[Rfam]
RNA sequence: UCCGUCCGGGUCCGUGGUUGCGUCAUCCGGACCGGUGCGCGUGCGCACCACCCCGGGUGGCAAGCCGAUGCCAGUCGCAGGCGAAACGGCCCACGUAAGGCUGGAGACAGCCGAUCACGGUGCGGCUUAGAGGUAAGUCCUGCUUCGGCGCCGCCGUCAGACACGGCGACCGUCGGGAGAGGGCCGGUAGUGGCAUCCAAGCUGCGAAAGCUCCCGCAGGCGAUUGUGGGGACGAAGACCAGGUCGGCCGGGCGGA
Number, nucleotide and partner (000 for none) at each position: 001u256002c255003c254004g253005u252006c251007c250008g249009g248010g000011u000012c247013c246014g245015u241016g240017g239018u238019u237020g000021c000022g000023u000024c000025a000026u000027c000028c000029g000030g000031a000032c000033c000034g000035g000036u000037g000038c000039g000040c000041g000042u000043g000044c000045g000046c000047a000048c000049c000050a000051c000052c000053c000054c000055g000056g000057g000058u000059g000060g000061c000062a000063a000064g000065c000066c000067g000068a227069u226070g225071c081072c000073a127074g126075u125076c124077g123078c122079a121080g000081g071082c000083g000084a000085a000086a000087c000088g000089g000090c120091c119092c000093a000094c000095g115096u000097a000098a000099g111100g000101c000102u000103g000104g000105a000106g000107a000108c000109a000110g000111c099112c000113g000114a000115u095116c000117a000118c234119g091120g090121u079122g078123c077124g076125g075126c074127u073128u000129a000130g000131a000132g000133g000134u000135a000136a000137g000138u000139c220140c219141u218142g217143c216144u177145u176146c175147g174148g173149c172150g171151c000152c000153g000154c000155c000156g000157u000158c000159a000160g000161a000162c000163a000164c000165g000166g000167c000168g000169a000170c000171c150172g149173u148174c147175g146176g145177g144178a000179g000180a000181g213182g212183g211184c210185c000186g000187g000188u000189a000190g205191u204192g000193g202194c201195a000196u000197c000198c000199a000200a000201g194202c193203u000204g191205c190206g000207a000208a000209a000210g184211c183212u182213c181214c000215c000216g143217c142218a141219g140220g139221c000222g000223a000224u000225u070226g069227u068228g000229g000230g000231g000232a000233c000234g118235a000236a000237g019238a018239c017240c016241a015242g000243g000244u000245c014246g013247g012248c009249c008250g007251g006252g005253c004254g003255g002256a001